A member of the RNA family "Alphaproteobacteria transfer-messenger RNA" from Acetobacter aceti, 327 nucleotides long. Bacterial tmRNA, also known as 10Sa RNA or SsrA, is named for its dual tRNA and mRNA-like properties.
[Rfam]
RNA sequence: GACCUUGCGGAAGGUGAUGCAUACCCCUAUCUUCAUGAGUGCAGGAGGGUUUCGGCCCUUGGCUAUGGCGAUAAACGGAAUUUGGAAUAAGCGUUGUGGACCCGGGGGCGGUACCCGGCGUCUCCACCAUGAAAACUCCCGGCCAGUCCGGGAUUGUGGGGACGAAACAGGCUCGACACGCGUGGUAAAGACUUUCCUUUUGCCCGGCAUUGUACCGCCGUCAUCGGGCUAACUUACAAGUGCCAACGAUAACUCAGAGGUGCUCGCUGUCGCUGCAUAAGCGAUAAGCGCGGUUCGGGAGGGCACCGGGCAACAGAAGCCCUCCCA
Numbered sequence: 001g002a003c004c005u006u007g008c009g010g011a012a013g014g015u016g017a018u019g020c021a022u023a024c025c026c027c028u029a030u031c032u033u034c035a036u037g038a039g040u041g042c043a044g045g046a047g048g049g050u051u052u053c054g055g056c057c058c059u060u061g062g063c064u065a066u067g068g069c070g071a072u073a074a075a076c077g078g079a080a081u082u083u084g085g086a087a088u089a090a091g092c093g094u095u096g097u098g099g100a101c102c103c104g105g106g107g108g109c110g111g112u113a114c115c116c117g118g119c120g121u122c123u124c125c126a127c128c129a130u131g132a133a134a135a136c137u138c139c140c141g142g143c144c145a146g147u148c149c150g151g152g153a154u155u156g157u158g159g160g161g162a163c164g165a166a167a168c169a170g171g172c173u174c175g176a177c178a179c180g181c182g183u184g185g186u187a188a189a190g191a192c193u194u195u196c197c198u199u200u201u202g203c204c205c206g207g208c209a210u211u212g213u214a215c216c217g218c219c220g221u222c223a224u225c226g227g228g229c230u231a232a233c234u235u236a237c238a239a240g241u242g243c244c245a246a247c248g249a250u251a252a253c254u255c256a257g258a259g260g261u262g263c264u265c266g267c268u269g270u271c272g273c274u275g276c277a278u279a280a281g282c283g284a285u286a287a288g289c290g291c292g293g294u295u296c297g298g299g300a301g302g303g304c305a306c307c308g309g310g311c312a313a314c315a316g317a318a319g320c321c322c323u324c325c326c327a
Stems, first nucleotide, its partner, number of pairs: 041063002044060002067204005077197004083191001092182003096179003102118005119164007205220004210231001212229001215227002291308004298324002301321002
It is annotated as a non-coding RNA gene. It scores 236 bits against the family's covariance model. The source organism's lineage runs through Bacteria, Pseudomonadati, Acetobacterales, Acetobacter and Acetobacter subgen. Acetobacter. The base pairs follow the family's consensus structure, which is taken from published work.